[Rfam]
RNA sequence: UGUAUGCAGCCACUCCGGGCAGGACGACGCCGGUUUGGUGGCGUGGAGUCCAAUCGGUGCGGCGAGAC
Numbered sequence: 001u002g003u004a005u006g007c008a009g010c011c012a013c014u015c016c017g018g019g020c021a022g023g024a025c026g027a028c029g030c031c032g033g034u035u036u037g038g039u040g041g042c043g044u045g046g047a048g049u050c051c052a053a054u055c056g057g058u059g060c061g062g063c064g065a066g067a068c
Base pairs, nucleotide, nucleotide: 009063010062011061013059015057016056022051023050024049025048028043029042030041031040
A member of the RNA family "Trypanosomatid snoRNA TB10Cs3H2" from Trypanosoma cruzi, 68 nucleotides long. Rfam links the family to the GO terms RNA processing and nucleolus. Pairs were carried over by alignment from the consensus structure, which was predicted with WAR. A reference for the family is Liang et al. (2005), "A genome-wide analysis of C/D and H/ACA-like small nucleolar RNAs in Trypanosoma brucei reveals a trypanosome-specific pattern of rRNA modification", RNA.